[Rfam]
RNA sequence: GCCGGGUAUGUGGCGCAUACCUAUAAUCCUGCUUCUGGGAGGCUUGGUGUAGUGGAUGGCUUGAGGCUGGGAGUCCUGCUGGAUCGUCGCUUGCGUUGAACAGGUGUCCGCACUAAGCUUGGCAUCAACAUGGAUCGAUUGGAGGAAUCCGGUAGAUCCAGGUUAUCUAAGGAGGAGCGAAUCGGGCCAGGAGGGAAACCGAGCAGCCAAAAGUUCCCGUGUCGGGCAGUAGUGGGAUCGCGCCCGUGAGUAGGCGCCUUUCAGUAGCCCAGCCAAUAAAGUCACACCUACAUCUUU
Numbered sequence: 001g002c003c004g005g006g007u008a009u010g011u012g013g014c015g016c017a018u019a020c021c022u023a024u025a026a027u028c029c030u031g032c033u034u035c036u037g038g039g040a041g042g043c044u045u046g047g048u049g050u051a052g053u054g055g056a057u058g059g060c061u062u063g064a065g066g067c068u069g070g071g072a073g074u075c076c077u078g079c080u081g082g083a084u085c086g087u088c089g090c091u092u093g094c095g096u097u098g099a100a101c102a103g104g105u106g107u108c109c110g111c112a113c114u115a116a117g118c119u120u121g122g123c124a125u126c127a128a129c130a131u132g133g134a135u136c137g138a139u140u141g142g143a144g145g146a147a148u149c150c151g152g153u154a155g156a157u158c159c160a161g162g163u164u165a166u167c168u169a170a171g172g173a174g175g176a177g178c179g180a181a182u183c184g185g186g187c188c189a190g191g192a193g194g195g196a197a198a199c200c201g202a203g204c205a206g207c208c209a210a211a212a213g214u215u216c217c218c219g220u221g222u223c224g225g226g227c228a229g230u231a232g233u234g235g236g237a238u239c240g241c242g243c244c245c246g247u248g249a250g251u252a253g254g255c256g257c258c259u260u261u262c263a264g265u266a267g268c269c270c271a272g273c274c275a276a277u278a279a280a281g282u283c284a285c286a287c288c289u290a291c292a293u294c295u296u297u
Stems, first nucleotide, its partner, number of pairs: 001043003004022008027040003046294007057284006065274007076267008086257002090254005096248001100247002103244005108236002111234005117227009127164003131160006138153006166172002174217005185208003193200002
Rfam assigns this 297-nucleotide sequence from Daphnia galeata to the family "Metazoan signal recognition particle RNA". It scores 243 bits against the family's covariance model. A reference for the family is Rosenblad et al. (2003), "SRPDB: Signal Recognition Particle Database", Nucleic Acids Res. Rfam 15.1 lists 383,523 matches to the family in 1,221 species. Rfam links the family to the GO terms SRP-dependent cotranslational protein targeting to membrane, signal sequence recognition and signal recognition particle, endoplasmic reticulum targeting. The base pairs follow the family's consensus structure, which is taken from published work.